[Rfam]
RNA sequence: UUGCAUCCACUGAUAGACCUUGAACAAUCUAACAUUGUUCUUUUGGUUUGCACUAGGAUGCAAAAGAAAAAAAUCCCUGCACUUUCUGUCUUUGUGGCAGCCCAGAUUGAAUAGGGGACUACAUCU
Numbered sequence: 001u002u003g004c005a006u007c008c009a010c011u012g013a014u015a016g017a018c019c020u021u022g023a024a025c026a027a028u029c030u031a032a033c034a035u036u037g038u039u040c041u042u043u044u045g046g047u048u049u050g051c052a053c054u055a056g057g058a059u060g061c062a063a064a065a066g067a068a069a070a071a072a073a074u075c076c077c078u079g080c081a082c083u084u085u086c087u088g089u090c091u092u093u094g095u096g097g098c099a100g101c102c103c104a105g106a107u108u109g110a111a112u113a114g115g116g117g118a119c120u121a122c123a124u125c126u
Stems, first nucleotide, its partner, number of pairs: 002062007011052002014050006022040007074118005082109001085106004089097002
RNA: Small nucleolar RNA SNORA31
Organism: Phyllostomus discolor